[Rfam]
RNA sequence: GAUGUCCUUGUCUUCGGGGAGCAUAGUAUUCAAUGAACGUAUAGUGAGGGUACUGAUGCUGAAACCCAUUACAAUAAUUAUUAUCGCAUCCGUGUAUUUAUAUUAAAAUACAUGUGUUGCAAUUUUUGAAAGG
Number, nucleotide and partner (000 for none) at each position: 001g000002a000003u000004g000005u020006c019007c018008u017009u016010g000011u000012c000013u000014u000015c000016g009017g008018g007019g006020a005021g059022c058023a057024u056025a054026g053027u052028a051029u050030u049031c048032a000033a000034u000035g000036a000037a045038c044039g000040u000041a000042u000043a000044g038045u037046g000047a000048g031049g030050g029051u028052a027053c026054u025055g000056a024057u023058g022059c021060u000061g000062a000063a000064a000065c000066c000067c000068a000069u000070u000071a000072c000073a000074a000075u000076a000077a000078u000079u000080a000081u000082u000083a000084u000085c000086g120087c119088a118089u000090c116091c000092g000093u000094g111095u110096a109097u108098u107099u106100a000101u000102a000103u000104u000105a000106a099107a098108a097109u096110a095111c094112a000113u000114g000115u000116g090117u000118u088119g087120c086121a000122a000123u000124u000125u000126u000127u000128g000129a000130a000131a000132g000133g000
A member of the RNA family "U4atac minor spliceosomal RNA" from Aphidius gifuensis, 133 nucleotides long.
The base pairs follow the family's consensus structure, which is taken from published work.
The match comes from Rfam's covariance-model search (89 bits).
It is annotated as a spliceosomal small nuclear RNA.
From the family's description: U4atac is an essential component of the minor U12-type spliceosome complex which is required for removal of the rarer class of eukaryotic introns (AT-AC, U12-type).
Gene Ontology terms of the family: mRNA 5'-splice site recognition, U4atac snRNP and pre-mRNA 5'-splice site binding.